A member of the RNA family "Small nucleolar RNA SNORD79" from Vombatus ursinus, 81 nucleotides long. It scores 87 bits against the family's covariance model. Rfam describes the family as follows. snoRNA U79 or Z22 is found in intron 7 of the gas5 gene in humans and is also present in mice. Lineage of the source: Eukaryota > Chordata > Teleostomi > Theria > Vombatus. For this family Rfam cites "Purified box C/D snoRNPs are able to reproduce site-specific 2'-O-methylation of target RNA in vitro" (Galardi et al., Mol Cell Biol, 2002). The family is grouped with related families in Rfam's "SNORD74 clan". It is annotated as a C/D-box small nucleolar RNA. Its family is annotated with nucleolus and RNA processing in the Gene Ontology.
RNA sequence: UACUGUUAGUGAUGAUUUGUAUAGUAAAACAAUGGGAAUCUCUCUGAAAAAGAAUGAGGAUUUUCUUUUUCUGAAACAGUA
Numbered sequence: 001u002a003c004u005g006u007u008a009g010u011g012a013u014g015a016u017u018u019g020u021a022u023a024g025u026a027a028a029a030c031a032a033u034g035g036g037a038a039u040c041u042c043u044c045u046g047a048a049a050a051a052g053a054a055u056g057a058g059g060a061u062u063u064u065c066u067u068u069u070u071c072u073g074a075a076a077c078a079g080u081a
Stems, first nucleotide, its partner, number of pairs: 001081007